[Rfam]
RNA sequence: AAGAGCUUCGAUCCAAUAAAAACUGAGAAGAUUGAACUAAGAACCAA
Numbered sequence: 001a002a003g004a005g006c007u008u009c010g011a012u013c014c015a016a017u018a019a020a021a022a023c024u025g026a027g028a029a030g031a032u033u034g035a036a037c038u039a040a041g042a043a044c045c046a047a
Stems, first nucleotide, its partner, number of pairs: 007041002010038001012036001014034004
RNA: Plastid-rpl16 group II-D1 intron